RNA: Eukaryotic large subunit ribosomal RNA, nucleotides 605 to 887
RNA sequence: GAGUCUAGCGGUGCUGCGAGUCGAAGGGACGUUUAAUCCUUGUAGGCGCAGUGAAAGCGAAUUACCAUAAGAAAUUGUGCUAAUUUGAGGGGGCAUGAGGUCGUUGACCAGAAAGUCCCACCUGGAGCAGUAGCGCUAGGACCCGAAAGAUGGUGAACUAUGCCUGAGUAGGGCGAAGCCAGAAGAAAUUCUGGUGGAGGCUCGUAGCGGUGCUGACGUGCAAAUCGCUCGUCGAACUUGGGUAUAGGGGCGAAAGACUAAUCGAACCAUCUGGUAGCUGGUU
Numbered sequence: 001g002a003g004u005c006u007a008g009c010g011g012u013g014c015u016g017c018g019a020g021u022c023g024a025a026g027g028g029a030c031g032u033u034u035a036a037u038c039c040u041u042g043u044a045g046g047c048g049c050a051g052u053g054a055a056a057g058c059g060a061a062u063u064a065c066c067a068u069a070a071g072a073a074a075u076u077g078u079g080c081u082a083a084u085u086u087g088a089g090g091g092g093g094c095a096u097g098a099g100g101u102c103g104u105u106g107a108c109c110a111g112a113a114a115g116u117c118c119c120a121c122c123u124g125g126a127g128c129a130g131u132a133g134c135g136c137u138a139g140g141a142c143c144c145g146a147a148a149g150a151u152g153g154u155g156a157a158c159u160a161u162g163c164c165u166g167a168g169u170a171g172g173g174c175g176a177a178g179c180c181a182g183a184a185g186a187a188a189u190u191c192u193g194g195u196g197g198a199g200g201c202u203c204g205u206a207g208c209g210g211u212g213c214u215g216a217c218g219u220g221c222a223a224a225u226c227g228c229u230c231g232u233c234g235a236a237c238u239u240g241g242g243u244a245u246a247g248g249g250g251c252g253a254a255a256g257a258c259u260a261a262u263c264g265a266a267c268c269a270u271c272u273g274g275u276a277g278c279u280g281g282u283u
Base pairs, nucleotide, nucleotide: 005139006138007137008136009135010134012132013131014130015129016128017127020047021046022045025041026040027039028038029037051058052057066087067086069084074078089122090121091119092118093117094115096113100109142281143280145278149271150270151269152268153267154266158247159246160245161244162243163242164241165240166239167238168237169235171203172202173201174200178195179194180193181192182191183190184189207232208231209230210229212228213227215226216225249259250258